[Rfam]
RNA sequence: ACAAAGGCUCUUUUUAGAGCCACCCAAGUUUUCAAAGAAAGAGCUA
Numbered sequence: 001a002c003a004a005a006g007g008c009u010c011u012u013u014u015u016a017g018a019g020c021c022a023c024c025c026a027a028g029u030u031u032u033c034a035a036a037g038a039a040a041g042a043g044c045u046a
Base pairs, nucleotide, nucleotide: 006021007020008019009018010017011016

The record is a 46-nucleotide RNA from Loxodonta africana, which matches "Histone 3' UTR stem-loop" in Rfam.
Rfam describes the family as follows. The mRNAs of metazoan histone genes lack a poly-A tail. 3' end processing occurs at a site between a highly conserved stem-loop (modelled by this family) and a purine rich region around 20 nts downstream (the histone downstream element, or HDE).
For this family Rfam cites "The sequence of the stem and flanking sequences at the 3' end of histone mRNA are critical determinants for the binding of the stem-loop binding protein" (Williams and Marzluff, Nucleic Acids Res, 1995).
By type it is a cis-regulatory element.
The source organism's lineage runs through Eukaryota, Eumetazoa, Tetrapoda, Elephantidae and Loxodonta.